[Rfam]
RNA sequence: GCCGGGCGUAGUGGCGCGCGCCUGUAAUCCUAGCUGUGGGGGAGGCGGAGCCCGACGGAUCGCUUGAGCCCGGGGUUCUGGGCUGGCGUGUGCUCUGUGGGACGCCUGGGGUGGGCGUCCCAUCUCUGAAGCCGGCAUAUGGAUAUGGUGACCCUGGGGUAUGGGCGCCUGACUUGAUGACGAGGCAUGAGCCGGCCGAGGUGUCAGAGAUGGAGCAGGGAAAGCUCCCGUGGCGGUCAGUGGAGAGGACCGCGUCUGUGAAUAGCAACGCCAGCAAGCCACGGGCAAGAGAGUGAGACGGGGGCUCAC
Numbered sequence: 001g002c003c004g005g006g007c008g009u010a011g012u013g014g015c016g017c018g019c020g021c022c023u024g025u026a027a028u029c030c031u032a033g034c035u036g037u038g039g040g041g042g043a044g045g046c047g048g049a050g051c052c053c054g055a056c057g058g059a060u061c062g063c064u065u066g067a068g069c070c071c072g073g074g075g076u077u078c079u080g081g082g083c084u085g086g087c088g089u090g091u092g093c094u095c096u097g098u099g100g101g102a103c104g105c106c107u108g109g110g111g112u113g114g115g116c117g118u119c120c121c122a123u124c125u126c127u128g129a130a131g132c133c134g135g136c137a138u139a140u141g142g143a144u145a146u147g148g149u150g151a152c153c154c155u156g157g158g159g160u161a162u163g164g165g166c167g168c169c170u171g172a173c174u175u176g177a178u179g180a181c182g183a184g185g186c187a188u189g190a191g192c193c194g195g196c197c198g199a200g201g202u203g204u205c206a207g208a209g210a211u212g213g214a215g216c217a218g219g220g221a222a223a224g225c226u227c228c229c230g231u232g233g234c235g236g237u238c239a240g241u242g243g244a245g246a247g248g249a250c251c252g253c254g255u256c257u258g259u260g261a262a263u264a265g266c267a268a269c270g271c272c273a274g275c276a277a278g279c280c281a282c283g284g285g286c287a288a289g290a291g292a293g294u295g296a297g298a299c300g301g302g303g304g305c306u307c308a309c
Base pairs, nucleotide, nucleotide: 001046002045003044004023005022006021007020008019009018028043029042030041048307049306050305051304052303053302060296061295062294063293064292065291068286069285070284071283072282074280078278079277082275083274084273085272086271087270088269089268092266093265094264096262098260111259112258113257114256115255116254117253118252120248121247123246124245125244126243127242131237132236133235134234136232137231138230141175142174144172147169148168149167150166152164153163155161156160184228185227188224196219197218204213205212206211

A member of the RNA family "Metazoan signal recognition particle RNA" from Rhodinocichla rosea, 309 nucleotides long. The base pairs follow the family's consensus structure, which is taken from published work. The source organism's lineage runs through Eukaryota, Coelurosauria, Aves, Thraupidae and Rhodinocichla. Rfam describes the family as follows. The signal recognition particle (SRP) is a universally conserved ribonucleoprotein. It is involved in the co-translational targeting of proteins to membranes. The eukaryotic SRP consists of a 300-nucleotide 7S RNA and six proteins: SRPs 72, 68, 54, 19, 14, and 9.